A member of the RNA family "Clostridiales-1 RNA" from Butyrivibrio sp. INlla14, 167 nucleotides long.
Rfam classes the family as a small RNA.
[Rfam]
RNA sequence: UGAUAUAGGUGUCAAAAGUCAAAAUGCGUACAUGCUUGCAUGUUAAGCAUCUUGACUUUAUGACCCGAACAAAUAUGAGGAAUAAGCAAUUUACGUAGUAAAUUAGCGGUUUCCGAAUAUUUGUAGAAUUGCGAGAGUUUCGAAGAAACAAAGCAAUUCGUAUAUCA
Number, nucleotide and partner (000 for none) at each position: 001u167002g166003a165004u164005a163006u162007a161008g000009g000010u000011g064012u063013c062014a000015a058016a000017a057018g056019u055020c054021a053022a052023a000024a050025u049026g048027c047028g000029u045030a043031c042032a041033u040034g039035c000036u000037u000038g000039c034040a033041u032042g031043u030044u000045a029046a000047g027048c026049a025050u024051c000052u022053u021054g020055a019056c018057u017058u015059u000060a000061u000062g013063a012064c011065c000066c000067g000068a000069a124070c123071a122072a121073a120074u119075a118076u117077g000078a000079g114080g113081a112082a111083u000084a000085a000086g107087c106088a104089a103090u102091u101092u100093a099094c098095g000096u000097a000098g094099u093100a092101a091102a090103u089104u088105a000106g087107c086108g000109g000110u000111u082112u081113c080114c079115g000116a000117a076118u075119a074120u073121u072122u071123g070124u069125a000126g159127a158128a157129u156130u155131g154132c153133g000134a000135g000136a000137g149138u148139u147140u146141c000142g000143a000144a000145g000146a140147a139148a138149c137150a000151a000152a000153g132154c131155a130156a129157u128158u127159c126160g000161u007162a006163u005164a004165u003166c002167a001